The record is a 45-nucleotide sequence from Nocardia jiangxiensis, which matches "L31-Actinobacteria ribosomal protein leader" in Rfam.
[Rfam]
RNA sequence: UCGGUUCCGGUUCACGUCCUCAUCUCUGUGGGCGACCCGGCGACC
Number, nucleotide and partner (000 for none) at each position: 001u000002c000003g045004g044005u043006u000007c040008c039009g038010g037011u000012u000013c000014a000015c034016g033017u032018c031019c030020u000021c028022a027023u000024c000025u000026c000027u022028g021029u000030g019031g018032g017033c016034g015035a000036c000037c010038c009039g008040g007041c000042g000043a005044c004045c003

Rfam's curators put it in the seed alignment. By type it is a cis-regulatory leader. Clan: Ribosomal Protein L31 Leader clan. Pairs were carried over by alignment from the consensus structure, which is taken from published work. The organism belongs to Nocardia jiangxiensis, within Bacteria.